This 138-nucleotide RNA sequence from Callorhinchus milii belongs to the Rfam family "Small nucleolar RNA SNORA84". Pairs were carried over by alignment from the consensus structure, which was predicted with WAR. A reference for the family is Marker et al. (2002), "Experimental RNomics: identification of 140 candidates for small non-messenger RNAs in the plant Arabidopsis thaliana", Curr Biol.
RNA sequence: GCCCUGUGGUUACUGUGGACUGGGGUGACAGUCCAGUUCCGCAGUUAUUAUGAACGGGCCAAAAGUAACACUGUGAUAUAUGCAUGGGGUCUGUAAUGUUUAAUGAGCAGUCUCCGUAGCCCGGUCACAGAGACAUAC
Numbered sequence: 001g002c003c004c005u006g007u008g009g010u011u012a013c014u015g016u017g018g019a020c021u022g023g024g025g026u027g028a029c030a031g032u033c034c035a036g037u038u039c040c041g042c043a044g045u046u047a048u049u050a051u052g053a054a055c056g057g058g059c060c061a062a063a064a065g066u067a068a069c070a071c072u073g074u075g076a077u078a079u080a081u082g083c084a085u086g087g088g089g090u091c092u093g094u095a096a097u098g099u100u101u102a103a104u105g106a107g108c109a110g111u112c113u114c115c116g117u118a119g120c121c122c123g124g125u126c127a128c129a130g131a132g133a134c135a136u137a138c
Stems, first nucleotide, its partner, number of pairs: 001059004007050002010047001012045006019037005071130001073128005082120002084117004089112001091110004